Source information: Lysine riboswitch aptamer: a 180-nucleotide RNA from Vibrio vulnificus. Its family is annotated with lysine biosynthetic process in the Gene Ontology. Rfam's curators put it in the seed alignment. Taxonomically the source falls in Vibrio vulnificus (Bacteria, Pseudomonadati, Gammaproteobacteria, Vibrio).
[Rfam]
RNA sequence: UAUCGACGUAGAGGCGCAAUGGUAAAGAGUAACUAUUAUUGGGGUGAUGCCAAUGAAUAAUAGUGAAAGGUAUCCAUUGCCGAAGUGAAUUGCAUAUCAAAGCAGUUUGCUGGGGUUGCAUCCGAAAGGAACAACACUGCCAUAGUAUUUAAUGUAUAACUAUGGAGCGCUACUGUAGGU
Numbered sequence: 001u002a003u004c005g006a007c008g009u010a011g012a013g014g015c016g017c018a019a020u021g022g023u024a025a026a027g028a029g030u031a032a033c034u035a036u037u038a039u040u041g042g043g044g045u046g047a048u049g050c051c052a053a054u055g056a057a058u059a060a061u062a063g064u065g066a067a068a069g070g071u072a073u074c075c076a077u078u079g080c081c082g083a084a085g086u087g088a089a090u091u092g093c094a095u096a097u098c099a100a101a102g103c104a105g106u107u108u109g110c111u112g113g114g115g116u117u118g119c120a121u122c123c124g125a126a127a128g129g130a131a132c133a134a135c136a137c138u139g140c141c142a143u144a145g146u147a148u149u150u151a152a153u154g155u156a157u158a159a160c161u162a163u164g165g166a167g168c169g170c171u172a173c174u175g176u177a178g179g180u
Stems, first nucleotide, its partner, number of pairs: 008173004016080005021074004032064008084111010095100001112138002115135004121129002140165007